RNA sequence: AGUUAAGUGAAUAGUUUUAUCCAUAUAAUCUUAACAAUACGGGUUAAGAGUUUCUACCAGAGACCGUAAAUCUCUGACUAUGGGUAAGUCCAGUUUAUUU
Numbered sequence: 001a002g003u004u005a006a007g008u009g010a011a012u013a014g015u016u017u018u019a020u021c022c023a024u025a026u027a028a029u030c031u032u033a034a035c036a037a038u039a040c041g042g043g044u045u046a047a048g049a050g051u052u053u054c055u056a057c058c059a060g061a062g063a064c065c066g067u068a069a070a071u072c073u074c075u076g077a078c079u080a081u082g083g084g085u086a087a088g089u090c091c092a093g094u095u096u097a098u099u100u
Base pairs, nucleotide, nucleotide: 018086019085020084021083022082023081024080025079029049030048031047032046033045034044035043058076059075060074061073062072063071
This 100-nucleotide RNA sequence from Clostridium botulinum belongs to the Rfam family "Purine riboswitch aptamer". The family's consensus secondary structure is taken from published work. Riboswitches are metabolite binding domains within certain messenger RNAs that serve as precision sensors for their corresponding targets. The organism belongs to Clostridium botulinum A, within Bacteria.